[Rfam]
Overview:
The family of this 115-nucleotide sequence from Mesorhizobium opportunistum is "Rhizobiales sRNA Atu_C8".
RNA sequence: GAAAAAGGCACUCAUUCUCGUAGGAAGGCGCGUGGGCAAGGCGGUGUAACCGCCGGGCGAAAACCUCCCAUGCGCAACACACAGGCUCCCUCGGGGGCCUUUUUUAUUGCCUAAA
Numbered sequence: 001g002a003a004a005a006a007g008g009c010a011c012u013c014a015u016u017c018u019c020g021u022a023g024g025a026a027g028g029c030g031c032g033u034g035g036g037c038a039a040g041g042c043g044g045u046g047u048a049a050c051c052g053c054c055g056g057g058c059g060a061a062a063a064c065c066u067c068c069c070a071u072g073c074g075c076a077a078c079a080c081a082c083a084g085g086c087u088c089c090c091u092c093g094g095g096g097g098c099c100u101u102u103u104u105u106a107u108u109g110c111c112u113a114a115a
Stems, first nucleotide, its partner, number of pairs: 009020001023111002026108001028075009040054005057064001081101001083100007
The source organism's lineage runs through Bacteria, Alphaproteobacteria, Phyllobacteriaceae, Mesorhizobium and Mesorhizobium opportunistum. For this family Rfam cites "Deep sequencing uncovers numerous small RNAs on all four replicons of the plant pathogen Agrobacterium tumefaciens" (Wilms et al., RNA Biol, 2012). The family's consensus secondary structure was predicted with CMfinder. Rfam's curators put it in the seed alignment.